[Rfam]
Mycobacterium sRNA ncrMT1302: a 107-nucleotide RNA sequence from Mycobacterium parascrofulaceum. The organism belongs to Mycobacterium parascrofulaceum, within Bacteria. It is annotated as a small RNA. The family's consensus secondary structure was predicted with WAR.
RNA sequence: GAACGACCAAUUCGAAGCGCCGGAAGUCAGGGUAGAAAACCGGCCGCGUAGGACCCGCGCAUGACGGAGCCCACGCCCCCUAGAGUCGUCCGGGCCUGCCCAUGUCC
Numbered sequence: 001g002a003a004c005g006a007c008c009a010a011u012u013c014g015a016a017g018c019g020c021c022g023g024a025a026g027u028c029a030g031g032g033u034a035g036a037a038a039a040c041c042g043g044c045c046g047c048g049u050a051g052g053a054c055c056c057g058c059g060c061a062u063g064a065c066g067g068a069g070c071c072c073a074c075g076c077c078c079c080c081u082a083g084a085g086u087c088g089u090c091c092g093g094g095c096c097u098g099c100c101c102a103u104g105u106c107c
Base pairs, nucleotide, nucleotide: 003089004088005087006086007085020043021042022041023040028035046076047075048074049073055067056066057065092101093100094099